The record is an 85-nucleotide RNA from Facklamia hominis, which matches "SAM-III riboswitch aptamer (SMK box)" in Rfam. Gene Ontology terms of the family: regulation of translational initiation and methionine adenosyltransferase activity. It scores 71 bits against the family's covariance model. For this family Rfam cites "Riboswitches that sense S-adenosylmethionine and S-adenosylhomocysteine" (Wang and Breaker, Biochem Cell Biol, 2008).
RNA sequence: UACUGUUACAAUUCAAUUCCCGAUGGGGUUCAUUUUUAAAUGAAUAUGCCUUGUAACCAAUAAUUUUAAAUGGGGGAAAAAUAUG
Numbered sequence: 001u002a003c004u005g006u007u008a009c010a011a012u013u014c015a016a017u018u019c020c021c022g023a024u025g026g027g028g029u030u031c032a033u034u035u036u037u038a039a040a041u042g043a044a045u046a047u048g049c050c051u052u053g054u055a056a057c058c059a060a061u062a063a064u065u066u067u068a069a070a071u072g073g074g075g076g077a078a079a080a081a082u083a084u085g
Stems, first nucleotide, its partner, number of pairs: 017078005025051003029044005057073002